A member of the RNA family "THF (Tetrahydrofolate) riboswitch aptamer", 98 nucleotides long. Rfam's curators write: Tetrahydrofolate (THF) riboswitch was first reported for Ames et al. as an RNA motif in 5' untranslated (5'-UTR)regions of folate transport and biosynthesis genes in Firmicutes genomes.

RNA sequence: CAACAGAGUAAGGCCAUGUGCGUUAAGUGCCGCAUCAACGGGGAGUUGUGCUGUGGACGAAGGUGUACCCGCGGUGCAUGGUCUGCAUCCCGCUGCUG
Numbered sequence: 001c002a003a004c005a006g007a008g009u010a011a012g013g014c015c016a017u018g019u020g021c022g023u024u025a026a027g028u029g030c031c032g033c034a035u036c037a038a039c040g041g042g043g044a045g046u047u048g049u050g051c052u053g054u055g056g057a058c059g060a061a062g063g064u065g066u067a068c069c070c071g072c073g074g075u076g077c078a079u080g081g082u083c084u085g086c087a088u089c090c091c092g093c094u095g096c097u098g
Base pairs, nucleotide, nucleotide: 002097004095005094006093011084012083013082014081015080016079017078018077019076020075021073022072023071027058028057030056031055032054033053034052036050037049041090042089043088045086062070063069
Annotation
For this family Rfam cites "A eubacterial riboswitch class that senses the coenzyme tetrahydrofolate" (Ames et al., Chem Biol, 2010). The family has 101 seed sequences and 747 matches in Rfam 15.1. It is one of the family's seed sequences.